[Rfam]
RNA sequence: GGCUAGUCCGACUGCAGGGGUGUUUACAACGAAGUAAUCACAAUCAGCUACAGAUGUCUUUGUUCUUUCUCCACUCUCUCUGCUUCAUUUUGACUAGCCGAAA
Numbered sequence: 001g002g003c004u005a006g007u008c009c010g011a012c013u014g015c016a017g018g019g020g021u022g023u024u025u026a027c028a029a030c031g032a033a034g035u036a037a038u039c040a041c042a043a044u045c046a047g048c049u050a051c052a053g054a055u056g057u058c059u060u061u062g063u064u065c066u067u068u069c070u071c072c073a074c075u076c077u078c079u080c081u082g083c084u085u086c087a088u089u090u091u092g093a094c095u096a097g098c099c100g101a102a103a
Base pairs, nucleotide, nucleotide: 001099002098003097004096005095006094007093008092010091011090014086016081017080018079019078020077022076028064029063030062032060033059

The family of this 103-nucleotide RNA from Sapajus apella is "Y RNA". The source organism's lineage runs through Eukaryota, Euteleostomi, Primates, Cebinae and Sapajus. Y RNAs are components of the Ro ribonucleoprotein particle (Ro RNP), in association with Ro60 and La proteins. The Y RNAs and Ro60 and La proteins are well conserved, but the function of the Ro RNP is not known. In humans the RNA component can be one of four small RNAs -- hY1, hY3, hY4 and hY5. These small RNAs are predicted to fold into a conserved secondary structure containing three stem structures. The family's RNA type in Rfam is non-coding RNA gene.